[Rfam]
RNA: Mammalian CPEB3 ribozyme
RNA sequence: AGUCACAAGUUUGAGACCACAGCAGAAGUGCUCACAGCACAGCACUGUCUAAUUCCAAUGAAUGUGCAAAUUCUGAU
Numbered sequence: 001a002g003u004c005a006c007a008a009g010u011u012u013g014a015g016a017c018c019a020c021a022g023c024a025g026a027a028g029u030g031c032u033c034a035c036a037g038c039a040c041a042g043c044a045c046u047g048u049c050u051a052a053u054u055c056c057a058a059u060g061a062a063u064g065u066g067c068a069a070a071u072u073c074u075g076a077u
Stems, first nucleotide, its partner, number of pairs: 013045001015043001017042001021077001023075005028040003049066001052063004